A member of the RNA family "mir-544 microRNA precursor family" from Sousa chinensis, 98 nucleotides long.
A search with the family's covariance model found it, with a score of 67 bits.
Nucleotides: 098
Base pairs, nucleotide, nucleotide: 003091004090005089009085010084011083014081015080016079017078020075021073022072023071025069026068027067028066029065031063032062
Number, partner (000 for none) and nucleotide at each position: 001000a002000u003091c004090a005089c006000a007000u008000g009085g010084g011083g012000a013000u014081c015080u016079u017078g018000a019000u020075a021073a022072a023071a024000u025069g026068c027067a028066g029065a030000u031063u032062c033000u034000g035000g036000a037000a038000c039000a040000a041000a042000a043000u044000g045000u046000c047000u048000g049000g050000g051000g052000c053000a054000g055000g056000g057000c058000c059000u060000g061000u062032g063031a064000u065029u066028c067027u068026g069025c070000a071023u072022u073021u074000u075020u076000c077000a078017c079016a080015a081014g082000c083011u084010c085009c086000c087000a088000g089005g090004u091003g092000a093000u094000g095000c096000u097000g098000g
Its family is annotated with miRNA-mediated post-transcriptional gene silencing and RISC complex in the Gene Ontology. A reference for the family is Chiang et al. (2010), "Mammalian microRNAs: experimental evaluation of novel and previously annotated genes", Genes Dev. Lineage of the source: Eukaryota > Deuterostomia > Sarcopterygii > Theria > Sousa.